The family of this 121-nucleotide RNA from Pseudomonas indica is "Pseudomonas rpsL leader". The literature on the family includes a 2010 paper in Genome Biol by Naville and Gautheret, "Premature terminator analysis sheds light on a hidden world of bacterial transcriptional attenuation". The match comes from Rfam's covariance-model search (119 bits).
RNA sequence: GGCCCGGGCUUUGCCUUGACGGGGGGCGGGAGUCUCUUUAGACUCAUGCACCCCUAAAUUUGGCAGGGCGUUGCGCUCUGCCAUUUUGUUUAUGUCGAAAGACAACAGUGGAGCUAGUAGA
Numbered sequence: 001g002g003c004c005c006g007g008g009c010u011u012u013g014c015c016u017u018g019a020c021g022g023g024g025g026g027c028g029g030g031a032g033u034c035u036c037u038u039u040a041g042a043c044u045c046a047u048g049c050a051c052c053c054c055u056a057a058a059u060u061u062g063g064c065a066g067g068g069c070g071u072u073g074c075g076c077u078c079u080g081c082c083a084u085u086u087u088g089u090u091u092a093u094g095u096c097g098a099a100a101g102a103c104a105a106c107a108g109u110g111g112a113g114c115u116a117g118u119a120g121a
Stems, first nucleotide, its partner, number of pairs: 004018001006016004022053003026049003030045002034041002061083009094103003